[Rfam]
Rfam assigns this 131-nucleotide RNA sequence from Sesamum indicum to the family "Small nucleolar RNA snoR111". On this family, see Marker et al., Curr Biol 2002: "Experimental RNomics: identification of 140 candidates for small non-messenger RNAs in the plant Arabidopsis thaliana". The match comes from Rfam's covariance-model search (80 bits). The source organism's lineage runs through Eukaryota, Tracheophyta, Gunneridae, lamiids and Sesamum. Its family is annotated with nucleolus and RNA processing in the Gene Ontology. Pairs were carried over by alignment from the consensus structure, which was predicted with WAR.
RNA sequence: GUAAUUCAUGGAAUGGGGCGGUAUCUUAGUUCCUUCUCAUCGAUGAGGACAAGAGGUACAAUAAUGAUGGCGAGAUAUCGUUUCAGUCGUCAUUUUUCCCCAUUGACGAUUCGAUUGUUGCUCGUCCACAU
Numbered sequence: 001g002u003a004a005u006u007c008a009u010g011g012a013a014u015g016g017g018g019c020g021g022u023a024u025c026u027u028a029g030u031u032c033c034u035u036c037u038c039a040u041c042g043a044u045g046a047g048g049a050c051a052a053g054a055g056g057u058a059c060a061a062u063a064a065u066g067a068u069g070g071c072g073a074g075a076u077a078u079c080g081u082u083u084c085a086g087u088c089g090u091c092a093u094u095u096u097u098c099c100c101c102a103u104u105g106a107c108g109a110u111u112c113g114a115u116u117g118u119u120g121c122u123c124g125u126c127c128a129c130a131u
Stems, first nucleotide, its partner, number of pairs: 006043002011038001013035001015033004069127002071124004077115004086110007094102001